[Rfam]
RNA sequence: UCGUCCUGACCUCCGCUUUCUCGGCUCCCCUGUGCUCGGCUGUAGCAGGGGAGUCCGGCAGGACACACAGCAACCUCCCUCCCAGUUCAGGAGGGCUGUCCUGAGUGCAGGGCUGGCUCUCAAAGGCACGAGAGGACAAU
Numbered sequence: 001u002c003g004u005c006c007u008g009a010c011c012u013c014c015g016c017u018u019u020c021u022c023g024g025c026u027c028c029c030c031u032g033u034g035c036u037c038g039g040c041u042g043u044a045g046c047a048g049g050g051g052a053g054u055c056c057g058g059c060a061g062g063a064c065a066c067a068c069a070g071c072a073a074c075c076u077c078c079c080u081c082c083c084a085g086u087u088c089a090g091g092a093g094g095g096c097u098g099u100c101c102u103g104a105g106u107g108c109a110g111g112g113c114u115g116g117c118u119c120u121c122a123a124a125g126g127c128a129c130g131a132g133a134g135g136a137c138a139a140u
Base pairs, nucleotide, nucleotide: 003064004063005062006061007060008059010058011057024054025053026052028050029049030048031047032046033045078135079134080133081132083130085127086126087125091121092120093119094118095117096116097115098113099112100111101110102109103108
Rfam assigns this 140-nucleotide RNA sequence from Phyllostomus discolor to the family "Small Cajal body specific RNA 11". Taxonomically the source falls in Phyllostomus (Eukaryota, Vertebrata, Chiroptera, Phyllostomidae). Pairs were carried over by alignment from the consensus structure, which was predicted with RNAalifold. Rfam's curators write: scaRNAs are a specific class of small nuclear RNAs which localise to the Cajal bodies and guide the modification of RNA polymerase II transcribed spliceosomal RNAs U1, U2, U4, U5 and U12. ACA57 belongs to the H/ACA box class of guide RNAs as it has the predicted hairpin-hinge-hairpin-tail structure, conserved H/ACA-box motifs and is found associated with GAR1. ACA57 is predicted to guide the pseudouridylation of the U5 spliceosomal RNA at position U43. A search with the family's covariance model found it, with a score of 134 bits.